[Rfam]
RNA sequence: AAUUCGAUAGGUGAUGGAGCUCACCGUUUACUUCCUGCAAAGGAUGAUGGCUCCUACGGAUAG
Numbered sequence: 001a002a003u004u005c006g007a008u009a010g011g012u013g014a015u016g017g018a019g020c021u022c023a024c025c026g027u028u029u030a031c032u033u034c035c036u037g038c039a040a041a042g043g044a045u046g047a048u049g050g051c052u053c054c055u056a057c058g059g060a061u062a063g
Stems, first nucleotide, its partner, number of pairs: 010025004016054006033044004
RNA: Fluoride riboswitch aptamer (crcB RNA motif)
Organism: Paenalicyclobacillus macrosporangiidus